Annotation: Shown here is a 134-nucleotide RNA from Flavivirga aquatica, a member of the family "SAM riboswitch aptamer (S box leader)". A search with the family's covariance model found it, with a score of 75 bits. NCBI's taxonomy places the organism under Bacteria, Pseudomonadati, Flavobacteriales, Flavobacteriaceae, Flavivirga.
[Rfam]
RNA sequence: AUGUUAUCAAGAAAGGUAGAGGGAUUAGACCCAAUGAAGCCUUGGCAACCCUUUACAUGUCCCCGAUGCCUAUUGGGGCAUUAAAGAAGGUGCUACGUUCUACUAGAAUCAAAAAGAUACUAGAAAGAUAACGA
Number, nucleotide and partner (000 for none) at each position: 001a000002u133003g132004u131005u130006a129007u128008c127009a000010a000011g000012a000013a043014a042015g041016g040017u039018a000019g000020a000021g032022g031023g030024a000025u000026u102027a101028g100029a099030c023031c022032c021033a000034a000035u000036g000037a000038a000039g017040c016041c015042u014043u013044g094045g093046c092047a091048a000049c090050c089051c086052u085053u084054u083055a000056c000057a000058u000059g000060u000061c000062c000063c000064c000065g000066a000067u000068g000069c000070c000071u000072a000073u000074u000075g000076g000077g000078g000079c000080a000081u000082u000083a054084a053085a052086g051087a000088a000089g050090g049091u047092g046093c045094u044095a000096c000097g000098u126099u029100c028101u027102a026103c123104u122105a121106g120107a000108a118109u117110c116111a000112a000113a000114a000115a000116g110117a109118u108119a000120c106121u105122a104123g103124a000125a000126a098127g008128a007129u006130a005131a004132c003133g002134a000